Shown here is a 71-nucleotide RNA sequence from Ruminococcus sp. OM06-36AC, a member of the family "Fluoride riboswitch aptamer (crcB RNA motif)".
Taxonomically the source falls in Ruminococcus (Bacteria, Bacillati, Bacillota, Clostridia).
Pairs were carried over by alignment from the consensus structure, which is taken from published work.
[Rfam]
RNA sequence: GUUUCCUUAGGGAAUGAUGUUCUCCCUUGGGAUUCCAAAACCGCUUGAGUGCUGAUGACAUCUGCUUUUUA
Numbered sequence: 001g002u003u004u005c006c007u008u009a010g011g012g013a014a015u016g017a018u019g020u021u022c023u024c025c026c027u028u029g030g031g032a033u034u035c036c037a038a039a040a041c042c043g044c045u046u047g048a049g050u051g052c053u054g055a056u057g058a059c060a061u062c063u064g065c066u067u068u069u070u071a
Stems, first nucleotide, its partner, number of pairs: 010026004016062006043052002
Dot-bracket structure: .........[[[[..((((((.]]]]................((......))....)))))).........